[Rfam]
RNA sequence: UUGCCAUGAUGACUUUUCAUUGGGUUUCGCAUGUUGCUGAGCUCUAAUGAUGCCUCUUGUCUCUUGGCUGCCUGAGCAA
Numbered sequence: 001u002u003g004c005c006a007u008g009a010u011g012a013c014u015u016u017u018c019a020u021u022g023g024g025u026u027u028c029g030c031a032u033g034u035u036g037c038u039g040a041g042c043u044c045u046a047a048u049g050a051u052g053c054c055u056c057u058u059g060u061c062u063c064u065u066g067g068c069u070g071c072c073u074g075a076g077c078a079a
Stems, first nucleotide, its partner, number of pairs: 001079004
The family of this 79-nucleotide RNA from Chrysochloris asiatica is "Small nucleolar RNA SNORD53/SNORD92". For this family Rfam cites "Site-specific ribose methylation of preribosomal RNA: a novel function for small nucleolar RNAs" (Kiss-Laszlo et al., Cell, 1996). The match comes from Rfam's covariance-model search (77 bits). Taxonomically the source falls in Chrysochloris (Eukaryota, Chordata, Amniota, Eutheria). It is annotated as a C/D-box small nucleolar RNA.